[Rfam]
The family of this 230-nucleotide part of an RNA from uncultured bacterium HF0770_45N15 is "Bacterial large subunit ribosomal RNA". The base pairs follow the family's consensus structure, which is taken from published work. The family is grouped with related families in Rfam's "LSU clan". Rfam links the family to the GO terms ribosome and structural constituent of ribosome.
RNA sequence: GAGUCAUCGGUCGGCGGCGAGGCCGAGGCCACUGCCGCAGCCGUAGCGAAAGCGAGUCCGAAACGGGCAAUCGAGUCGCCGGCCAUGGACCCGAAACCGGGCGAUCUAUCCCCGUCCAGGCUGAAGCCAGGGUAAGACCUGGUGGAGGGCCGGACCGGUGGGCCUUAAAAAGUCCUCGGAUGAGGUGGGGAUAGGGGUGAAAGGCCAAUCAAGCCCGGAGAUAGCUGGUU
Number, nucleotide and partner (000 for none) at each position: 001g000002a000003g000004u000005c087006a086007u085008c000009g084010g083011u082012c081013g080014g079015c078016g077017g076018c075019g000020a000021g042022g041023c040024c000025g000026a000027g036028g035029c034030c000031a000032c000033u000034g029035c028036c027037g000038c000039a000040g023041c022042c021043g000044u000045a000046g053047c052048g000049a000050a000051a000052g047053c046054g000055a000056g068057u067058c066059c065060g000061a000062a000063a000064c000065g059066g058067g057068c056069a000070a000071u000072c000073g000074a000075g018076u017077c016078g015079c014080c013081g012082g011083c010084c009085a007086u006087g005088g000089a000090c228091c227092c000093g225094a000095a000096a000097c218098c217099g216100g215101g214102c213103g000104a000105u000106c194107u193108a192109u191110c190111c189112c188113c187114g186115u185116c184117c182118a000119g151120g150121c149122u148123g000124a000125a000126g143127c142128c141129a140130g139131g138132g000133u000134a000135a000136g000137a000138c131139c130140u129141g128142g127143u126144g000145g000146a000147g000148g122149g121150c120151c119152g000153g000154a000155c179156c178157g177158g000159u000160g175161g174162g173163c172164c000165u000166u000167a000168a000169a000170a000171a000172g163173u162174c161175c160176u000177c157178g156179g155180a000181u000182g117183a000184g116185g115186u114187g113188g112189g111190g110191a109192u108193a107194g106195g000196g206197g205198u204199g000200a000201a000202a000203g000204g198205c197206c196207a000208a000209u000210c000211a000212a000213g102214c101215c100216c099217g098218g097219a000220g000221a000222u000223a000224g000225c093226u000227g091228g090229u000230u000